[Rfam]
RNA sequence: UAUAAGAGAUUUUGAGUUUUUGUUUGUAGUGUUUGACCACUCGUCUUAUUCAAAAAAUUUUAGAAUUAUUAUUUACUUUUUUGUGACUUACUUUAUUAUCCAAAGUACUUUACGCAUAACUUUUCGUUUUUUAUAUUUGCAUAAAUUUUUUGAAUAAGACGAGUGGUCAAACACUACAAGCAAAAACUCAAAAUCCCUUAUA
Number, nucleotide and partner (000 for none) at each position: 001u000002a000003u000004a000005a000006g000007a000008g000009a000010u000011u000012u000013u000014g000015a000016g000017u000018u000019u000020u000021u000022g000023u000024u000025u178026g177027u176028a175029g174030u173031g000032u171033u170034u169035g168036a167037c166038c165039a164040c163041u162042c161043g160044u159045c158046u157047u156048a155049u154050u000051c000052a000053a000054a000055a000056a000057a000058u000059u000060u000061u000062a000063g000064a000065a000066u000067u000068a000069u000070u000071a000072u000073u000074u000075a000076c000077u000078u000079u000080u000081u000082u000083g000084u000085g000086a000087c000088u000089u000090a000091c000092u000093u000094u000095a000096u000097u000098a000099u000100c000101c000102a000103a000104a000105g000106u000107a000108c000109u000110u000111u000112a000113c000114g000115c000116a000117u000118a000119a000120c000121u000122u000123u000124u000125c000126g000127u000128u000129u000130u000131u000132u000133a000134u000135a000136u000137u000138u000139g000140c000141a000142u000143a000144a000145a000146u000147u000148u000149u000150u000151u000152g000153a000154a049155u048156a047157a046158g045159a044160c043161g042162a041163g040164u039165g038166g037167u036168c035169a034170a033171a032172c000173a030174c029175u028176a027177c026178a025179a000180g000181c000182a000183a000184a000185a000186a000187c000188u000189c000190a000191a000192a000193a000194u000195c000196c000197c000198u000199u000200a000201u000202a000
RNA: MIR812 microRNA precursor family
Organism: Oryza barthii